[Rfam]
RNA sequence: CGAGUAAUCACGCCAGCUGCUGGACACUGCACAAGAUUAGAUGUUGAAAGACUCUUGUGCGUGUGACAGCGGCUAUUGUGAUAGCUCAAUAACUGACA
Numbered sequence: 001c002g003a004g005u006a007a008u009c010a011c012g013c014c015a016g017c018u019g020c021u022g023g024a025c026a027c028u029g030c031a032c033a034a035g036a037u038u039a040g041a042u043g044u045u046g047a048a049a050g051a052c053u054c055u056u057g058u059g060c061g062u063g064u065g066a067c068a069g070c071g072g073c074u075a076u077u078g079u080g081a082u083a084g085c086u087c088a089a090u091a092a093c094u095g096a097c098a
Stems, first nucleotide, its partner, number of pairs: 005084001007082006015074008025063002028061006035054002